A member of the RNA family "Actino-pnp RNA" from Streptomyces armeniacus, 64 nucleotides long. The source organism's lineage runs through Bacteria, Bacillati, Actinomycetota, Actinomycetes and Streptomyces. Rfam classes the family as a cis-regulatory element.
RNA sequence: GUCGGUCCUCGGUAGUGGCUCCCGGACACAGACACGGUUCCGGGUGCUUCGAUCGAAGACCGGC
Numbered sequence: 001g002u003c004g005g006u007c008c009u010c011g012g013u014a015g016u017g018g019c020u021c022c023c024g025g026a027c028a029c030a031g032a033c034a035c036g037g038u039u040c041c042g043g044g045u046g047c048u049u050c051g052a053u054c055g056a057a058g059a060c061c062g063g064c
Stems, first nucleotide, its partner, number of pairs: 001064007009056005017048003021044006028038002